This 102-nucleotide sequence from Novibacillus thermophilus belongs to the Rfam family "Purine riboswitch aptamer". The family's consensus secondary structure is taken from published work. It scores 88 bits against the family's covariance model. The literature on the family includes a 2003 paper in Cell by Mandal et al., "Riboswitches Control Fundamental Biochemical Pathways in Bacillus subtilis and Other Bacteria".
[Rfam]
RNA sequence: AUAAAACUUAAUUUGUCGUUUCGUAUAGUGCCGGUAAUAGGGACCGGCAGUUUCUACCAGGCAACCGUAAAUUGCUUGACUACGAAACACGUACCACCCCGU
Numbered sequence: 001a002u003a004a005a006a007c008u009u010a011a012u013u014u015g016u017c018g019u020u021u022c023g024u025a026u027a028g029u030g031c032c033g034g035u036a037a038u039a040g041g042g043a044c045c046g047g048c049a050g051u052u053u054c055u056a057c058c059a060g061g062c063a064a065c066c067g068u069a070a071a072u073u074g075c076u077u078g079a080c081u082a083c084g085a086a087a088c089a090c091g092u093a094c095c096a097c098c099c100c101g102u
Stems, first nucleotide, its partner, number of pairs: 018088008029049007058078007